Rfam assigns this 138-nucleotide sequence from Cebus imitator to the family "Small nucleolar RNA SNORA64/SNORA10 family".
For this family Rfam cites "Nucleolar localization signals of box H/ACA small nucleolar RNAs" (Narayanan et al., EMBO J, 1999).
Rfam 15.1 lists 703 matches to the family in 311 species.
From the family's description: This family belongs to the H/ACA class of small nucleolar RNAs (snoRNAs) which act as guides in the the modification of uridines to pseudouridines. This family includes the human snoRNAs U64 and ACA10 and mouse MBI-29.
The family's consensus secondary structure is taken from published work.

RNA sequence: ACUCUCUUGGCUCUGUAUAGUUACACCUGGCUUCACUUGAGUGAAAGCGCAAGUGGGAAGUGGGAAGAGAGAGAAAAGAUCUCCUUGGUACCUCAACUUGGCCUUUUGGUGGCCUCUUUCCUUGAAGGAACAACAGGA
Numbered sequence: 001a002c003u004c005u006c007u008u009g010g011c012u013c014u015g016u017a018u019a020g021u022u023a024c025a026c027c028u029g030g031c032u033u034c035a036c037u038u039g040a041g042u043g044a045a046a047g048c049g050c051a052a053g054u055g056g057g058a059a060g061u062g063g064g065a066a067g068a069g070a071g072a073g074a075a076a077a078g079a080u081c082u083c084c085u086u087g088g089u090a091c092c093u094c095a096a097c098u099u100g101g102c103c104u105u106u107u108g109g110u111g112g113c114c115u116c117u118u119u120c121c122u123u124g125a126a127g128g129a130a131c132a133a134c135a136g137g138a
Base pairs, nucleotide, nucleotide: 002073003072004071005070006069007068008067012064013063014062015061020048021044022043023042024041026039083128084127085126087123088122100114101113102112103111